Description
tRNA: a 73-nucleotide sequence from Desulfobulbus oralis. It scores 60 bits against the family's covariance model. From the family's description: Transfer RNA (tRNA) molecules are approximately 80 nucleotides in length. NCBI's taxonomy places the organism under Bacteria, Desulfobulbia, Desulfobulbales, Desulfobulbaceae, Desulfobulbus. Its family is annotated with triplet codon-amino acid adaptor activity in the Gene Ontology.
[Rfam]
RNA sequence: GCGCCCGUUGCCCAACGGAUAAGGCACCGGACUUCGAAUCCGGCUAUUGGGGGUUCGAUUCCCUCCGGGCGCG
Numbered sequence: 001g002c003g004c005c006c007g008u009u010g011c012c013c014a015a016c017g018g019a020u021a022a023g024g025c026a027c028c029g030g031a032c033u034u035c036g037a038a039u040c041c042g043g044c045u046a047u048u049g050g051g052g053g054u055u056c057g058a059u060u061c062c063c064u065c066c067g068g069g070c071g072c073g
Base pairs, nucleotide, nucleotide: 001072002071003070004069005068006067007066010025011024012023027043028042029041030040031039049065050064051063052062053061